RNA sequence: CGGGCAUGCAUUGUAGUUGCAUUGCAUGGAUGUAAAUAACGAUGCAAUACUUCUGCAGUGUAAACCCCG
Numbered sequence: 001c002g003g004g005c006a007u008g009c010a011u012u013g014u015a016g017u018u019g020c021a022u023u024g025c026a027u028g029g030a031u032g033u034a035a036a037u038a039a040c041g042a043u044g045c046a047a048u049a050c051u052u053c054u055g056c057a058g059u060g061u062a063a064a065c066c067c068c069g
Stems, first nucleotide, its partner, number of pairs: 001069004007062010019050001021048007
Dot-bracket structure: ((((..((((((((((..(.(((((((..............))))))).)..))))))))))...))))
RNA: mir-33 microRNA precursor family
Organism: Cephus cinctus